[Rfam]
RNA sequence: GUACAGGUGAUGAAGUAAAUCAGUAUGAACUGUCGUGAUACUGUAAACGCUUUCUGAUGUA
Numbered sequence: 001g002u003a004c005a006g007g008u009g010a011u012g013a014a015g016u017a018a019a020u021c022a023g024u025a026u027g028a029a030c031u032g033u034c035g036u037g038a039u040a041c042u043g044u045a046a047a048c049g050c051u052u053u054c055u056g057a058u059g060u061a
Base pairs, nucleotide, nucleotide: 002061003060004059005058012053013052014051015050016049021043022042023041024040025039026038
RNA: Small nucleolar RNA Z39